[Rfam]
RNA sequence: AGUUGCAAAUAUUGUGGUGGAAUUACAAGCUGUCUUGUCAUCCGAAAUUUGUGGUUGA
Numbered sequence: 001a002g003u004u005g006c007a008a009a010u011a012u013u014g015u016g017g018u019g020g021a022a023u024u025a026c027a028a029g030c031u032g033u034c035u036u037g038u039c040a041u042c043c044g045a046a047a048u049u050u051g052u053g054g055u056u057g058a
Stems, first nucleotide, its partner, number of pairs: 001056010012045003016042005022036001025033002